[Rfam]
Record summary: This 96-nucleotide RNA from Phaseolus vulgaris belongs to the Rfam family "Small nucleolar RNA Z43". The match comes from Rfam's covariance-model search (46 bits). Its family is annotated with RNA processing and nucleolus in the Gene Ontology. Taxonomically the source falls in Phaseolus (Eukaryota, Streptophyta, eudicotyledons, Papilionoideae).

RNA sequence: GGACUGUGAUCAUUUCUGUGAUAAGGCUUCCUUCGUCGAAAUUGGCCAAAUCGUUCGUCGACGAUUCUGCUAUAUCACCACCCAGGUUCUCUUUUC
Numbered sequence: 001g002g003a004c005u006g007u008g009a010u011c012a013u014u015u016c017u018g019u020g021a022u023a024a025g026g027c028u029u030c031c032u033u034c035g036u037c038g039a040a041a042u043u044g045g046c047c048a049a050a051u052c053g054u055u056c057g058u059c060g061a062c063g064a065u066u067c068u069g070c071u072a073u074a075u076c077a078c079c080a081c082c083c084a085g086g087u088u089c090u091c092u093u094u095u096c
Stems, first nucleotide, its partner, number of pairs: 001096003048055002